The record is a 76-nucleotide sequence from Camelimonas lactis, which matches "Makes More Granules Regulator RNA (mmgR)" in Rfam. The family is grouped with related families in Rfam's "suhB sRNA clan". It scores 76 bits against the family's covariance model. The source organism's lineage runs through Bacteria, Pseudomonadati, Alphaproteobacteria, Chelatococcaceae and Camelimonas. By type it is a small RNA.
RNA sequence: UGCUGCAGCCCUCCUUGGGCGUUUCCUCCCUAGACUUUAUGGCCGCGUCCCUGACGCGGCCUUUUUUUUGGCUUUU
Dot-bracket structure: .......((((.....))))....................(((((((((...)))))))))...............